RNA sequence: UAUCUGAAAUGCUUUAUGAGAGGAGUUUUCUUCCGCAAUGACUAAUAAAAAAGUAGUUCGCGUUGUCGUUAUUUUAAUGUUAAUCGCGAUUGUAUUAUCCAGCGUUUUAACCGGGUUACUAAUGUUUUUAUAGACAUCCGAGGUCUGAGCCAAUUUGGUUCAGGCUUUUUU
Numbered sequence: 001u002a003u004c005u006g007a008a009a010u011g012c013u014u015u016a017u018g019a020g021a022g023g024a025g026u027u028u029u030c031u032u033c034c035g036c037a038a039u040g041a042c043u044a045a046u047a048a049a050a051a052a053g054u055a056g057u058u059c060g061c062g063u064u065g066u067c068g069u070u071a072u073u074u075u076a077a078u079g080u081u082a083a084u085c086g087c088g089a090u091u092g093u094a095u096u097a098u099c100c101a102g103c104g105u106u107u108u109a110a111c112c113g114g115g116u117u118a119c120u121a122a123u124g125u126u127u128u129u130a131u132a133g134a135c136a137u138c139c140g141a142g143g144u145c146u147g148a149g150c151c152a153a154u155u156u157g158g159u160u161c162a163g164g165c166u167u168u169u170u171u
Stems, first nucleotide, its partner, number of pairs: 005109009016098004022034004035093005040058005059088004063083003067079005114139002117136001120133001122131003143165009
A member of the RNA family "Listeia sRNA rli42" from Listeria innocua, 171 nucleotides long. Pairs were carried over by alignment from the consensus structure, which was predicted with RNAalifold. Rfam classes the family as a small RNA. For this family Rfam cites "The Listeria transcriptional landscape from saprophytism to virulence" (Toledo-Arana et al., Nature, 2009). Lineage of the source: Bacteria > Bacillati > Caryophanales > Listeriaceae > Listeria.